[Rfam]
RNA sequence: GUCGGCGUCGUCACGGUCCAGCCGCAAGCCGUGCCCGUCGUCACCGAACUGCCGGGCCGCACCAGUGCGUUCCUCGUUGCGCAAGUGCGCGCGCGGGUGGACGGCAUCGUGCUGCGCCGGGAAUUUACGGAAGGCACGCAGGUCAAGGCCGGCCAGCGUCUGUACAAGAUCGA
Numbered sequence: 001g002u003c004g005g006c007g008u009c010g011u012c013a014c015g016g017u018c019c020a021g022c023c024g025c026a027a028g029c030c031g032u033g034c035c036c037g038u039c040g041u042c043a044c045c046g047a048a049c050u051g052c053c054g055g056g057c058c059g060c061a062c063c064a065g066u067g068c069g070u071u072c073c074u075c076g077u078u079g080c081g082c083a084a085g086u087g088c089g090c091g092c093g094c095g096g097g098u099g100g101a102c103g104g105c106a107u108c109g110u111g112c113u114g115c116g117c118c119g120g121g122a123a124u125u126u127a128c129g130g131a132a133g134g135c136a137c138g139c140a141g142g143u144c145a146a147g148g149c150c151g152g153c154c155a156g157c158g159u160c161u162g163u164a165c166a167a168g169a170u171c172g173a
Base pairs, nucleotide, nucleotide: 003054004053005052006051007050008047009046010045011043013041014040015039016038018037021034022033023031024030055150056149057148058147061143062142063141065139067137069135070134072133074131075130078093079092080091081090082089094120096118100115102114103113104112105111106110157172158171159169160168161167
Rfam assigns this 173-nucleotide sequence from Paraburkholderia phymatum to the family "Burkholderia RNA 14". From the family's description: Co-purified with Hfq, expression confirmed by Northern blot. Putative functional homologue of PA-SraF. Overlaps coding sequence. Rfam classes the family as a small RNA. The family's consensus secondary structure was predicted with RNAfold. The source organism's lineage runs through Bacteria, Betaproteobacteria, Burkholderiales, Paraburkholderia and Paraburkholderia phymatum. The sequence is in the family's curated seed alignment.